[Rfam]
RNA sequence: UGGACAGGGGGGUCUCCGCCCGAGGGUGGAGCCUGUCCAGCAGGUUGUGCGUGAUGCGUGUCAGGCGCGGCCAGUGGUUGUCGCUCGGGGGUGAUCGCCG
Numbered sequence: 001u002g003g004a005c006a007g008g009g010g011g012g013u014c015u016c017c018g019c020c021c022g023a024g025g026g027u028g029g030a031g032c033c034u035g036u037c038c039a040g041c042a043g044g045u046u047g048u049g050c051g052u053g054a055u056g057c058g059u060g061u062c063a064g065g066c067g068c069g070g071c072c073a074g075u076g077g078u079u080g081u082c083g084c085u086c087g088g089g090g091g092u093g094a095u096c097g098c099c100g
Stems, first nucleotide, its partner, number of pairs: 001039008014031007043072008

The family of this 100-nucleotide sequence from Streptomyces bottropensis is "che1 RNA". The organism belongs to Streptomyces bottropensis, within Bacteria. Rfam's curators put it in the seed alignment.